[Rfam]
RNA sequence: CGGCAAUGAUGAGAGGAUCUGUCCCUGCAUGGAGUGUUCAGUGCUGCGUGGAGACACCAGUCCCUCUAAACUGAGCUUGCCG
Numbered sequence: 001c002g003g004c005a006a007u008g009a010u011g012a013g014a015g016g017a018u019c020u021g022u023c024c025c026u027g028c029a030u031g032g033a034g035u036g037u038u039c040a041g042u043g044c045u046g047c048g049u050g051g052a053g054a055c056a057c058c059a060g061u062c063c064c065u066c067u068a069a070a071c072u073g074a075g076c077u078u079g080c081c082g
Base pairs, nucleotide, nucleotide: 001082002081003080004079005078006077